A member of the RNA family "Vault RNA" from Scyliorhinus torazame, 89 nucleotides long. The organism belongs to Scyliorhinus, within Eukaryota. It is annotated as a non-coding RNA gene. The literature on the family includes a 2009 paper in Mol Biol Evol by Stadler et al., "Evolution of Vault RNAs". Pairs were carried over by alignment from the consensus structure, which is taken from published work.
RNA sequence: GCGUCAGCUUUAGCUCACUGGUUACUUCACAGCAUCAACUUUUGAGUAAGUUCGAGCCUGUCUCACCGUGGGCGCUGCCUGGCGGUUUU
Numbered sequence: 001g002c003g004u005c006a007g008c009u010u011u012a013g014c015u016c017a018c019u020g021g022u023u024a025c026u027u028c029a030c031a032g033c034a035u036c037a038a039c040u041u042u043u044g045a046g047u048a049a050g051u052u053c054g055a056g057c058c059u060g061u062c063u064c065a066c067c068g069u070g071g072g073c074g075c076u077g078c079c080u081g082g083c084g085g086u087u088u089u
Stems, first nucleotide, its partner, number of pairs: 002084006013073004019068003026056003